[Rfam]
RNA sequence: UCACGAUAAUGGCAAACUCAUUCGAAAGAUGAGGACGCAAAGCCACGGGCCUUCAUUCACAUGAAUAUGGCAGCCGGGUUGCCGAA
Numbered sequence: 001u002c003a004c005g006a007u008a009a010u011g012g013c014a015a016a017c018u019c020a021u022u023c024g025a026a027a028g029a030u031g032a033g034g035a036c037g038c039a040a041a042g043c044c045a046c047g048g049g050c051c052u053u054c055a056u057u058c059a060c061a062u063g064a065a066u067a068u069g070g071c072a073g074c075c076g077g078g079u080u081g082c083c084g085a086a
Stems, first nucleotide, its partner, number of pairs: 012038002017033004022029002041080004046076003049071003056065003
Shown here is an 86-nucleotide RNA sequence from Mesobacillus campisalis, a member of the family "c-di-GMP-I riboswitch aptamer". Taxonomically the source falls in Mesobacillus (Bacteria, Bacillati, Bacilli, Bacillaceae).